[Rfam]
RNA: Picornavirus internal ribosome entry site (IRES)
RNA sequence: CAUGGGACGCUAGUUGUGAACAAGGUGUGAAGAGCCUAUUGAGCUACUUGAGAGUCCUCCGGCCCCUGAAUGCGGCUAAUCCUAACCAUGGAGCAAGUGCCCACAAGCCAGUGGGUGGCUUGUCGUAAUGCGCAAGUCUAUGGCGGAACCGACUACUUUGGGUGUCCGUGUUUCCUUUUAUUCUUAUUAUGGCUGCUUAUGGUGACAACCUAAGAUUGUUGUCAUAUAGCUUUUGGAUUGGCCAUCCGGUG
Numbered sequence: 001c002a003u004g005g006g007a008c009g010c011u012a013g014u015u016g017u018g019a020a021c022a023a024g025g026u027g028u029g030a031a032g033a034g035c036c037u038a039u040u041g042a043g044c045u046a047c048u049u050g051a052g053a054g055u056c057c058u059c060c061g062g063c064c065c066c067u068g069a070a071u072g073c074g075g076c077u078a079a080u081c082c083u084a085a086c087c088a089u090g091g092a093g094c095a096a097g098u099g100c101c102c103a104c105a106a107g108c109c110a111g112u113g114g115g116u117g118g119c120u121u122g123u124c125g126u127a128a129u130g131c132g133c134a135a136g137u138c139u140a141u142g143g144c145g146g147a148a149c150c151g152a153c154u155a156c157u158u159u160g161g162g163u164g165u166c167c168g169u170g171u172u173u174c175c176u177u178u179u180a181u182u183c184u185u186a187u188u189a190u191g192g193c194u195g196c197u198u199a200u201g202g203u204g205a206c207a208a209c210c211u212a213a214g215a216u217u218g219u220u221g222u223c224a225u226a227u228a229g230c231u232u233u234u235g236g237a238u239u240g241g242c243c244a245u246c247c248g249g250u251g
Base pairs, nucleotide, nucleotide: 005011006010020026021025034196035195042194043193044192045191046190050183051182060168061167062166064162065161066160073151074150075149080147081146082145086143087142088141089140090139091138092137094122095121096120097119098117099116100115101114102113103112104111124130125129198226199225200224201223202222203221204220205219206218207217208216210214